This 143-nucleotide RNA sequence from Rhynchospora breviuscula belongs to the Rfam family "small nucleolar RNA snoR134". NCBI's taxonomy places the organism under Eukaryota, Spermatophyta, Magnoliopsida, Mesangiospermae, Rhynchospora. It is annotated as an H/ACA-box small nucleolar RNA.
RNA sequence: AUGCACGGUGCCAACCCCGGGCUUAUCUGAGAUUUGCAUUGAAGAAAAAAGCCCCAGUGCCUGUGCUAUAUUCAAAUAGCCAUUCAGUGUUACAGAUCACGAAUUUUAUUAUGUAUGAUUUGCGUCAAGUGAUGGCAACAGUU
Numbered sequence: 001a002u003g004c005a006c007g008g009u010g011c012c013a014a015c016c017c018c019g020g021g022c023u024u025a026u027c028u029g030a031g032a033u034u035u036g037c038a039u040u041g042a043a044g045a046a047a048a049a050a051g052c053c054c055c056a057g058u059g060c061c062u063g064u065g066c067u068a069u070a071u072u073c074a075a076a077u078a079g080c081c082a083u084u085c086a087g088u089g090u091u092a093c094a095g096a097u098c099a100c101g102a103a104u105u106u107u108a109u110u111a112u113g114u115a116u117g118a119u120u121u122g123c124g125u126c127a128a129g130u131g132a133u134g135g136c137a138a139c140a141g142u143u
Stems, first nucleotide, its partner, number of pairs: 003066006010060002019054005024048001026045003079136006088127002091124001093122004099114003